Rfam assigns this 86-nucleotide sequence from Clarias magur to the family "Small nucleolar RNA SNORD35". A search with the family's covariance model found it, with a score of 58 bits. The family is grouped with related families in Rfam's "SNORD35 clan". Rfam's curators write: U35 is a C/D box snoRNA located in intron 6 of ribosomal protein L13A and intron 3 of ribosomal protein S11 in humans and at homologous positions in mouse and chicken ribosomal protein genes. U35 guides the methylation of 2'-O-ribose sites in 28S rRNA. The family's RNA type in Rfam is C/D-box small nucleolar RNA. On this family, see Nicoloso et al., J Mol Biol 1996: "Intron-encoded, antisense small nucleolar RNAs: the characterization of nine novel species points to their direct role as guides for the 2'-O-ribose methylation of rRNAs". Its family is annotated with nucleolus and RNA processing in the Gene Ontology. The family's consensus secondary structure was predicted with PFOLD.
RNA sequence: UGCAAAUGAUGUCUUUUCUCACGAUGGUCUUCCAAGCCGUCGCUGCUUUGACGACAUUGCCUACACGGCUAUGCUGAUGCAGUCCU
Numbered sequence: 001u002g003c004a005a006a007u008g009a010u011g012u013c014u015u016u017u018c019u020c021a022c023g024a025u026g027g028u029c030u031u032c033c034a035a036g037c038c039g040u041c042g043c044u045g046c047u048u049u050g051a052c053g054a055c056a057u058u059g060c061c062u063a064c065a066c067g068g069c070u071a072u073g074c075u076g077a078u079g080c081a082g083u084c085c086u
Stems, first nucleotide, its partner, number of pairs: 001081004